A member of the RNA family "skipping-rope RNA" from Bacillus sp. HNG, 69 nucleotides long. A search with the family's covariance model found it, with a score of 49 bits. It is annotated as a small RNA.
RNA sequence: AAUUUCUGAGGACGGAACAGGCAGCCGUCGCCCUCGAUGGAGAUGUGGGAGUGUCACCCCACCUAAAUU
Numbered sequence: 001a002a003u004u005u006c007u008g009a010g011g012a013c014g015g016a017a018c019a020g021g022c023a024g025c026c027g028u029c030g031c032c033c034u035c036g037a038u039g040g041a042g043a044u045g046u047g048g049g050a051g052u053g054u055c056a057c058c059c060c061a062c063c064u065a066a067a068u069u
Stems, first nucleotide, its partner, number of pairs: 001069005008063001011029005020055004031040001045062005
Dot-bracket structure: (((((..(..(((((....[[[[.))))).(........)....(((((..]]]]..)))))).)))))